[Rfam]
RNA sequence: AAAGCGGAAUCCGAAAAGCUUGAAGAGUAGAAA
Numbered sequence: 001a002a003a004g005c006g007g008a009a010u011c012c013g014a015a016a017a018g019c020u021u022g023a024a025g026a027g028u029a030g031a032a033a
Stems, first nucleotide, its partner, number of pairs: 002021004010032001012030001

About this RNA: A member of the RNA family "DUF805b RNA" from Chryseobacterium hagamense, 33 nucleotides long. It is annotated as a cis-regulatory element. It scores 39 bits against the family's covariance model.